ALIL pseudoknot: a 62-nucleotide RNA from Paraburkholderia panacisoli.
The match comes from Rfam's covariance-model search (54 bits).
The family's RNA type in Rfam is cis-regulatory element.
RNA sequence: UUGAUCAGCAUCGCGACGCCUUCGGGGUCGAGCCGAUCUGCAAGGUCUUGCAGAUUGCCCCG
Numbered sequence: 001u002u003g004a005u006c007a008g009c010a011u012c013g014c015g016a017c018g019c020c021u022u023c024g025g026g027g028u029c030g031a032g033c034c035g036a037u038c039u040g041c042a043a044g045g046u047c048u049u050g051c052a053g054a055u056u057g058c059c060c061c062g
Base pairs, nucleotide, nucleotide: 023062024061025060026059027058034057035056037054038053039052040051041050042049043048
Dot-bracket structure: ......................(((((......((.(((((((....))))))).)))))))